The record is a 149-nucleotide RNA, which matches "RT-3 RNA" in Rfam. Pairs were carried over by alignment from the consensus structure, which is taken from published work.
[Rfam]
RNA sequence: AAUCGGCGUACAACAUCGGGGACUUGUCCCCACCGUGGUGCCGAGGGGGGCAAGCCGCAGUAACAGCGGCCUUUUGGGCCGGAAAACUGAAAAACAAAGUGUCGGGUAGGGUUUGGUAGGCCGGAAACGGUUCGAAGAAGCCGGGCCCG
Numbered sequence: 001a002a003u004c005g006g007c008g009u010a011c012a013a014c015a016u017c018g019g020g021g022a023c024u025u026g027u028c029c030c031c032a033c034c035g036u037g038g039u040g041c042c043g044a045g046g047g048g049g050g051c052a053a054g055c056c057g058c059a060g061u062a063a064c065a066g067c068g069g070c071c072u073u074u075u076g077g078g079c080c081g082g083a084a085a086a087c088u089g090a091a092a093a094a095c096a097a098a099g100u101g102u103c104g105g106g107u108a109g110g111g112u113u114u115g116g117u118a119g120g121c122c123g124g125a126a127a128c129g130g131u132u133c134g135a136a137g138a139a140g141c142c143g144g145g146c147c148c149g
Base pairs, nucleotide, nucleotide: 003044004043005042006041007040008039011038013036014035018031019030020029021028022027046056047055058089059088060087061086067081068080069079070078071077103149104148105147106146107145109142110141112139113138114137119132120131121130122129123128